[Rfam]
RNA sequence: UAGUCUCGGUGAAGAUGCCGAGUACCCGCCACGGGACGGAAAGACCCCGUGCACCUUUACUAUAGGUUGCCAUUGGUGGUGGGUUCAGUAUGUGUAGCAUAGGCGGGAGGCGCUGAGCCGGGGACGCUAGUUCUCGGGGAGCCGACGUUGAAAUACCGCCCUUACUGUGCCUGCUGCCUAAUCCCGGAAUCCCGGGAGACAGUGGCUGCUGGGUAGUUUGACUGGGGUGGUCGCCUCCAAAAGAGUAUCGGAGGCUUUCAAAGGUCCGCUCAGUCCGCUUGGUAACCGGACGCAGAGCGCAAUAGCAGAAGCGGGCUUGACUGUGAGGCCGACUAGCCGAGCAGGGUCGAAAGACGGAUAUAGUGAUCCGGUGGUUCCGCAUGGAAGGGCCAUCGCUCAAAGGAUAAAAGGUACGCCGGGGAUAACAGGCUGAUCUCCCCCAAGAGCUCAUAUCGACGGGGAGGUUUGGCACCUCGAUGUCGGCUCGUCACGUCCUGGGGCUGGAGAAGGUCCCAAGGGUUCGGCUGUUCGCCGAUUAAAGUGGCACGCGAGCUGGGUUCAGAACGUCGUGAGACAGUUCGGUCCCUAUCUGUGGUGGGC
Numbered sequence: 001u002a003g004u005c006u007c008g009g010u011g012a013a014g015a016u017g018c019c020g021a022g023u024a025c026c027c028g029c030c031a032c033g034g035g036a037c038g039g040a041a042a043g044a045c046c047c048c049g050u051g052c053a054c055c056u057u058u059a060c061u062a063u064a065g066g067u068u069g070c071c072a073u074u075g076g077u078g079g080u081g082g083g084u085u086c087a088g089u090a091u092g093u094g095u096a097g098c099a100u101a102g103g104c105g106g107g108a109g110g111c112g113c114u115g116a117g118c119c120g121g122g123g124a125c126g127c128u129a130g131u132u133c134u135c136g137g138g139g140a141g142c143c144g145a146c147g148u149u150g151a152a153a154u155a156c157c158g159c160c161c162u163u164a165c166u167g168u169g170c171c172u173g174c175u176g177c178c179u180a181a182u183c184c185c186g187g188a189a190u191c192c193c194g195g196g197a198g199a200c201a202g203u204g205g206c207u208g209c210u211g212g213g214u215a216g217u218u219u220g221a222c223u224g225g226g227g228u229g230g231u232c233g234c235c236u237c238c239a240a241a242a243g244a245g246u247a248u249c250g251g252a253g254g255c256u257u258u259c260a261a262a263g264g265u266c267c268g269c270u271c272a273g274u275c276c277g278c279u280u281g282g283u284a285a286c287c288g289g290a291c292g293c294a295g296a297g298c299g300c301a302a303u304a305g306c307a308g309a310a311g312c313g314g315g316c317u318u319g320a321c322u323g324u325g326a327g328g329c330c331g332a333c334u335a336g337c338c339g340a341g342c343a344g345g346g347u348c349g350a351a352a353g354a355c356g357g358a359u360a361u362a363g364u365g366a367u368c369c370g371g372u373g374g375u376u377c378c379g380c381a382u383g384g385a386a387g388g389g390c391c392a393u394c395g396c397u398c399a400a401a402g403g404a405u406a407a408a409a410g411g412u413a414c415g416c417c418g419g420g421g422a423u424a425a426c427a428g429g430c431u432g433a434u435c436u437c438c439c440c441c442a443a444g445a446g447c448u449c450a451u452a453u454c455g456a457c458g459g460g461g462a463g464g465u466u467u468g469g470c471a472c473c474u475c476g477a478u479g480u481c482g483g484c485u486c487g488u489c490a491c492g493u494c495c496u497g498g499g500g501c502u503g504g505a506g507a508a509g510g511u512c513c514c515a516a517g518g519g520u521u522c523g524g525c526u527g528u529u530c531g532c533c534g535a536u537u538a539a540a541g542u543g544g545c546a547c548g549c550g551a552g553c554u555g556g557g558u559u560c561a562g563a564a565c566g567u568c569g570u571g572a573g574a575c576a577g578u579u580c581g582g583u584c585c586c587u588a589u590c591u592g593u594g595g596u597g598g599g600c
Stems, first nucleotide, its partner, number of pairs: 005022005025599008034591003038586002046420004051416002053412005059217004066209002069206004075178010086167005092161001102160005109143003118137008182197006220232004233255006256401001258358002264316006270296002273291005297306002321344004327338003346355003369395007377388002429470003433467001434464007444454002481556001482554004486548001487545005494519002497514006521535005562580004566575003
The family of this 600-nucleotide part of an RNA from Hymenobacter sp. 5317J-9 is "Bacterial large subunit ribosomal RNA". Gene Ontology terms of the family: ribosome and structural constituent of ribosome.